Cia-dependent small RNA csRNA1: a 98-nucleotide RNA sequence from Streptococcus infantis. NCBI's taxonomy places the organism under Bacteria, Bacillati, Streptococcaceae, Streptococcus, Streptococcus infantis. On this family, see Halfmann et al., Mol Microbiol 2007: "Identification of the genes directly controlled by the response regulator CiaR in Streptococcus pneumoniae: five out of 15 promoters drive expression of small non-coding RNAs".
[Rfam]
RNA sequence: AUUAAGUAAAGACCUCCUAACUUUAUUUAAUAGAAAUCCUAACUUUUCUUUUUCAUAAUAAUCUCCCUAAAGAAGCCACCAAAUCAGGUGGCUUUUUU
Number, nucleotide and partner (000 for none) at each position: 001a031002u030003u029004a028005a027006g026007u025008a024009a023010a022011g021012a000013c000014c000015u000016c000017c000018u000019a000020a000021c011022u010023u009024u008025a007026u006027u005028u004029a003030a002031u001032a000033g000034a000035a000036a000037u000038c000039c000040u000041a000042a000043c000044u000045u000046u000047u000048c000049u000050u000051u000052u000053u000054c000055a000056u000057a000058a000059u000060a000061a000062u000063c000064u000065c000066c000067c000068u000069a000070a000071a000072g095073a094074a093075g092076c091077c090078a089079c088080c087081a000082a000083a000084u000085c000086a000087g080088g079089u078090g077091g076092c075093u074094u073095u072096u000097u000098u000